[Rfam]
Nucleotides: 180
Base pairs, nucleotide, nucleotide: 006041007040008039009038010037011036012035013034015032016031017030018029063078064077065076066075069167070166071165072164073163074162079103080102081101082100083099084098085097086096088095089094106130107129108128109127110126112125113124114123133160134159135158136157137156138155139154143152144151145150
Number, partner (000 for none) and nucleotide at each position: 001000u002000c003000c004000c005000a006041c007040c008039g009038g010037u011036g012035c013034g014000c015032c016031g017030c018029a019000c020000u021000c022000c023000a024000c025000u026000u027000c028000u029018u030017g031016c032015g033000c034013c035012g036011c037010a038009c039008c040007g041006g042000c043000a044000a045000a046000u047000g048000a049000a050000a051000a052000g053000g054000a055000g056000g057000a058000a059000u060000g061000g062000g063078c064077c065076g066075c067000u068000g069167u070166g071165g072164c073163u074162g075066g076065c077064g078063g079103u080102g081101c082100g083099g084098c085097a086096g087000u088095g089094u090000g091000g092000a093000g094089a095088c096086c097085u098084g099083u100082c101081g102080u103079a104000a105000g106130g107129c108128g109127c110126g111000a112125g113124g114123g115000a116000c117000u118000u119000u120000c121000c122000g123114c124113c125112c126110c127109g128108c129107g130106u131000g132000a133160g134159g135158c136157u137156g138155u139154c140000g141000u142000c143152u144151g145150c146000g147000g148000a149000g150145g151144c152143a153000g154139g155138g156137c157136a158135g159134c160133u161000a162074c163073a164072g165071u166070c167069a168000g169000g170000u171000a172000g173000u174000u175000a176000u177000g178000g179000c180000a